[Rfam]
Annotation: A member of the RNA family "Bacillus sRNA ncr1575" from Bacillus sp. V5-8f, 200 nucleotides long. On this family, see Irnov et al., Nucleic Acids Res 2010: "Identification of regulatory RNAs in Bacillus subtilis".
RNA sequence: UUCAAUAAUCUUGAAGGGAUGAUGGAUGAACGGUGAAUAACUAAUCUUAUUUUUUAACUUUGAAAUCAAAUAUUUCAAAUGAAAGAAAUAGGAUUAGUCUCCCCAUUUACCUAUAAAUUGUUGAGCUACGAAUCGUACAUAGCUUAUUUGAUUAUGUUAAGGUACGGCUAAUCCUUCCAAAUAACUGGGAGGGUUUUUUA
Numbered sequence: 001u002u003c004a005a006u007a008a009u010c011u012u013g014a015a016g017g018g019a020u021g022a023u024g025g026a027u028g029a030a031c032g033g034u035g036a037a038u039a040a041c042u043a044a045u046c047u048u049a050u051u052u053u054u055u056a057a058c059u060u061u062g063a064a065a066u067c068a069a070a071u072a073u074u075u076c077a078a079a080u081g082a083a084a085g086a087a088a089u090a091g092g093a094u095u096a097g098u099c100u101c102c103c104c105a106u107u108u109a110c111c112u113a114u115a116a117a118u119u120g121u122u123g124a125g126c127u128a129c130g131a132a133u134c135g136u137a138c139a140u141a142g143c144u145u146a147u148u149u150g151a152u153u154a155u156g157u158u159a160a161g162g163u164a165c166g167g168c169u170a171a172u173c174c175u176u177c178c179a180a181a182u183a184a185c186u187g188g189g190a191g192g193g194u195u196u197u198u199u200a
Base pairs, nucleotide, nucleotide: 016111017110019108023105024104025103030098031097042096043095044094045093046092047091048090049089050088051087052086053085054084059079060078061077062076063075064074065073066072118150120148125143126142127141128140130138170195171194172193173192174191175190176189177188178187179186
It scores 135 bits against the family's covariance model.
NCBI's taxonomy places the organism under Bacteria, Bacillota, Bacilli, Caryophanales, Bacillus.
The family's RNA type in Rfam is small RNA.
Pairs were carried over by alignment from the consensus structure, which is taken from published work.